[Rfam]
RNA sequence: UUGCACAGAGAACACCCAAGUGUGCUUUGUAGUUCCCUUGGUUUAUAGUCUGUGCUAGAAUAACAUCUGCUCUUUUCCUCUGCGUUGGAAGGACUAUCUAUCCCUUUACAUGUAUUCAGAAGGGCAGCACAUUU
Numbered sequence: 001u002u003g004c005a006c007a008g009a010g011a012a013c014a015c016c017c018a019a020g021u022g023u024g025c026u027u028u029g030u031a032g033u034u035c036c037c038u039u040g041g042u043u044u045a046u047a048g049u050c051u052g053u054g055c056u057a058g059a060a061u062a063a064c065a066u067c068u069g070c071u072c073u074u075u076u077c078c079u080c081u082g083c084g085u086u087g088g089a090a091g092g093a094c095u096a097u098c099u100a101u102c103c104c105u106u107u108a109c110a111u112g113u114a115u116u117c118a119g120a121a122g123g124g125c126a127g128c129a130c131a132u133u134u
Stems, first nucleotide, its partner, number of pairs: 003055006010049001016041005022035001024033003057073003061069002079120004083112003087107003091103003
Dot-bracket structure: ..((((((.(.....(((((.(.(((....))).).))))).......))))))).(((.((.....)).))).....(((((((.(((.(((.......))).)))..)))....))))..............
The record is a 134-nucleotide sequence from Phascolarctos cinereus, which matches "Small nucleolar RNA SNORA22" in Rfam. Its family is annotated with RNA processing and nucleolus in the Gene Ontology. ACA22 is a member of the H/ACA class of snoRNA that guide the sites of modification of uridines to pseudouridines. The organism belongs to Phascolarctos, within Eukaryota. It is annotated as an H/ACA-box small nucleolar RNA. A search with the family's covariance model found it, with a score of 132 bits.